[Rfam]
RNA: Nuclear RNase P
Organism: Chelonia mydas
RNA sequence: UCAGAGGGAAGCUCACCAUUGAGGUCAUGUGCAGGGUGCUAAUCACUCACUAGUCAAUGCCUCUGUGAAGGUCUGAGAGAAAAGCCAAUUAGCUGCCCUUGCAGGGUAGCACCUGCUGCAGGUUAAUGAGUUACCACCUAUGUGGGGCCCUGGUUUAGGAUACAUAUGUGGCAGGAGAAGCCAGAGUGGUGCUCCCCUGGCAGAUGCCCAUUCACCCAAAGGGCUUUGGGGUAGGCUCAUGGCUGGCACUACUGAGCUCAAUGGGAUAAGGUGAGUCCCCAUAACCCAACUCAGACUACUCUCCCCCUGA
Number, nucleotide and partner (000 for none) at each position: 001u310002c309003a308004g307005a000006g000007g304008g303009a302010a000011g000012c270013u269014c000015a267016c265017c264018a000019u000020u000021g063022a062023g061024g060025u000026c000027a000028u000029g000030u000031g000032c000033a000034g048035g047036g046037u045038g044039c000040u000041a000042a000043u000044c038045a037046c036047u035048c034049a000050c000051u000052a000053g000054u000055c000056a000057a000058u000059g000060c024061c023062u022063c021064u000065g000066u000067g000068a000069a000070g000071g000072u000073c294074u293075g292076a291077g290078a000079g000080a000081a000082a000083a244084g243085c242086c241087a000088a000089u000090u000091a000092g000093c000094u108095g107096c106097c105098c104099u000100u000101g000102c000103a000104g098105g097106g096107u095108a094109g000110c000111a123112c122113c121114u120115g000116c000117u000118g000119c000120a114121g113122g112123u111124u000125a000126a240127u239128g238129a237130g236131u235132u234133a000134c000135c000136a000137c000138c000139u000140a000141u000142g000143u000144g000145g000146g225147g224148c223149c222150c221151u220152g000153g000154u000155u000156u000157a000158g000159g000160a000161u000162a000163c000164a000165u000166a000167u000168g000169u000170g000171g000172c000173a000174g000175g000176a000177g000178a000179a000180g000181c000182c000183a000184g000185a000186g000187u000188g000189g000190u000191g000192c000193u000194c000195c000196c000197c000198u000199g000200g000201c000202a000203g000204a000205u000206g000207c000208c000209c000210a000211u000212u000213c000214a000215c000216c000217c000218a000219a000220a151221g150222g149223g148224c147225u146226u000227u000228g000229g000230g000231g000232u000233a000234g132235g131236c130237u129238c128239a127240u126241g086242g085243c084244u083245g000246g000247c000248a000249c000250u000251a000252c000253u000254g000255a000256g000257c000258u000259c000260a000261a000262u000263g000264g017265g016266a000267u015268a000269a013270g012271g282272u281273g280274a000275g000276u000277c000278c000279c000280c273281a272282u271283a000284a000285c000286c000287c000288a000289a000290c077291u076292c075293a074294g073295a000296c000297u000298a000299c000300u000301c000302u009303c008304c007305c000306c000307c004308u003309g002310a001